[Rfam]
The family of this 172-nucleotide sequence from Actinomadura viridilutea is "c-di-AMP riboswitch aptamer (ydaO/yuaA leader)". Its family is annotated with regulation of gene expression and cyclic-di-AMP binding in the Gene Ontology. This family represents a conserved RNA structure found upstream of the ydaO and yuaA genes in Bacillus subtilis and related genes in other bacteria. The ydaO/yuaA element is thought to act as a genetic 'off' switch for the ydaO and yuaA genes in its native state. It is believed that the element may be triggered during osmotic shock leading to activation of ydaO, a predicted amino acid transporter gene, and members of the yuaA-yubG operon which code for KtrA and KtrB K+ transporters.
RNA sequence: CGCCGAAUCCCCCCAGCGGGGAGCCGGGGAACCACGUCCGAGGCGCCGUCCUCAGGACUCGGGGUGAAUCGACGCAGGUCGCACCGUCCGCGGUGACGCGCGCGCCUGCGCGUAGGGCGAACUCCCGGCCCGAACCCGUCAGCUAACCCGGCAGGCGGACGAGGAGAGGAGU
Numbered sequence: 001c002g003c004c005g006a007a008u009c010c011c012c013c014c015a016g017c018g019g020g021g022a023g024c025c026g027g028g029g030a031a032c033c034a035c036g037u038c039c040g041a042g043g044c045g046c047c048g049u050c051c052u053c054a055g056g057a058c059u060c061g062g063g064g065u066g067a068a069u070c071g072a073c074g075c076a077g078g079u080c081g082c083a084c085c086g087u088c089c090g091c092g093g094u095g096a097c098g099c100g101c102g103c104g105c106c107u108g109c110g111c112g113u114a115g116g117g118c119g120a121a122c123u124c125c126c127g128g129c130c131c132g133a134a135c136c137c138g139u140c141a142g143c144u145a146a147c148c149c150g151g152c153a154g155g156c157g158g159a160c161g162a163g164g165a166g167a168g169g170a171g172u
Stems, first nucleotide, its partner, number of pairs: 001157004008022003023152006033061001062137003070112002115131004